[Rfam]
Rfam assigns this 127-nucleotide RNA sequence from Proteiniborus sp. DW1 to the family "c-di-AMP riboswitch aptamer (ydaO/yuaA leader)". The pairing is the family consensus, mapped onto this sequence. Lineage of the source: Bacteria > Bacillati > Bacillota > Clostridia > Proteiniborus. From the family's description: This family represents a conserved RNA structure found upstream of the ydaO and yuaA genes in Bacillus subtilis and related genes in other bacteria. It scores 112 bits against the family's covariance model. Gene Ontology terms of the family: cyclic-di-AMP binding and regulation of gene expression.

RNA sequence: AAUAUAGAAUCGCUGAAUUCUCUUAAGAAGCGGGGGAACCAAUUUUUAGGGGUGAAUCCUAUUUAGGAGGGGCUACCCUUUAGCCCUAACCCGACAGCUAACCUCGUAAGCGUAUAAGGGGGCAGUA
Numbered sequence: 001a002a003u004a005u006a007g008a009a010u011c012g013c014u015g016a017a018u019u020c021u022c023u024u025a026a027g028a029a030g031c032g033g034g035g036g037a038a039c040c041a042a043u044u045u046u047u048a049g050g051g052g053u054g055a056a057u058c059c060u061a062u063u064u065a066g067g068a069g070g071g072g073c074u075a076c077c078c079u080u081u082a083g084c085c086c087u088a089a090c091c092c093g094a095c096a097g098c099u100a101a102c103c104u105c106g107u108a109a110g111c112g113u114a115u116a117a118g119g120g121g122g123c124a125g126u127a
Stems, first nucleotide, its partner, number of pairs: 011112004018029003030107006040049001050092003058067003070086004